[Rfam]
RNA sequence: AAGUUAAUAGGAGUAGCAAGGUUAAAAGCCUUAGCGAAAGCGACUGAACUUAGUAAUAUACCUAGCCCCUUUCCUUAAAAGCUAGGGGGCGUAAAUAUUUACAAUUAAUUUUUAAUUAGUAAAUAGGAUAAUUCCCAUAUUCUCCACACUAAUUAAUUUUUUUGUGCCGAGUGUAUAGUAAAUUAUUUUUUACAAAAAGUGGUGGGAUAGUUACUUCUAUUAGACCCGAAGCUAGGUGAUCUUCCCAAGACCAGAUUAUAAUGGAUCGAACGGUUGAAUGUUGCAUAAUUCUCCGAAGAGUUUUGGGAAGCGGUGAAAUGCCAAUCUGACCUAGUGCUAGCUGGUU
Numbered sequence: 001a002a003g004u005u006a007a008u009a010g011g012a013g014u015a016g017c018a019a020g021g022u023u024a025a026a027a028g029c030c031u032u033a034g035c036g037a038a039a040g041c042g043a044c045u046g047a048a049c050u051u052a053g054u055a056a057u058a059u060a061c062c063u064a065g066c067c068c069c070u071u072u073c074c075u076u077a078a079a080a081g082c083u084a085g086g087g088g089g090c091g092u093a094a095a096u097a098u099u100u101a102c103a104a105u106u107a108a109u110u111u112u113u114a115a116u117u118a119g120u121a122a123a124u125a126g127g128a129u130a131a132u133u134c135c136c137a138u139a140u141u142c143u144c145c146a147c148a149c150u151a152a153u154u155a156a157u158u159u160u161u162u163u164g165u166g167c168c169g170a171g172u173g174u175a176u177a178g179u180a181a182a183u184u185a186u187u188u189u190u191u192a193c194a195a196a197a198a199g200u201g202g203u204g205g206g207a208u209a210g211u212u213a214c215u216u217c218u219a220u221u222a223g224a225c226c227c228g229a230a231g232c233u234a235g236g237u238g239a240u241c242u243u244c245c246c247a248a249g250a251c252c253a254g255a256u257u258a259u260a261a262u263g264g265a266u267c268g269a270a271c272g273g274u275u276g277a278a279u280g281u282u283g284c285a286u287a288a289u290u291c292u293c294c295g296a297a298g299a300g301u302u303u304u305g306g307g308a309a310g311c312g313g314u315g316a317a318a319u320g321c322c323a324a325u326c327u328g329a330c331c332u333a334g335u336g337c338u339a340g341c342u343g344g345u346u
Stems, first nucleotide, its partner, number of pairs: 005222013020030004034041002044204001225344002228341001232334006241310011252298001254267004271295003276291004312322003
A member of the RNA family "Bacterial large subunit ribosomal RNA", 346 nucleotides of a longer RNA. Its Rfam clan is "LSU clan". Its family is annotated with structural constituent of ribosome and ribosome in the Gene Ontology. A search with the family's covariance model found it, with a score of 1199 bits.